[Rfam]
RNA sequence: UUCCAACGAUUUGCUUUAGAAUUCCUACGCUUUACCGUGUGUAAGCCUGGCAAAGCGUUUGGAUUCUGAAUCGAAGCGUCA
Numbered sequence: 001u002u003c004c005a006a007c008g009a010u011u012u013g014c015u016u017u018a019g020a021a022u023u024c025c026u027a028c029g030c031u032u033u034a035c036c037g038u039g040u041g042u043a044a045g046c047c048u049g050g051c052a053a054a055g056c057g058u059u060u061g062g063a064u065u066c067u068g069a070a071u072c073g074a075a076g077c078g079u080c081a
Stems, first nucleotide, its partner, number of pairs: 010075004015070006022063003027058007035050002

A member of the RNA family "mir-927 microRNA precursor family" from Oryctes borbonicus, 81 nucleotides long.
Gene Ontology terms of the family: miRNA-mediated post-transcriptional gene silencing and RISC complex.
For this family Rfam cites "Evolutionary flux of canonical microRNAs and mirtrons in Drosophila" (Berezikov et al., Nat Genet, 2010).
It scores 69 bits against the family's covariance model.
The source organism's lineage runs through Eukaryota, Metazoa, Insecta, Dicondylia and Oryctes.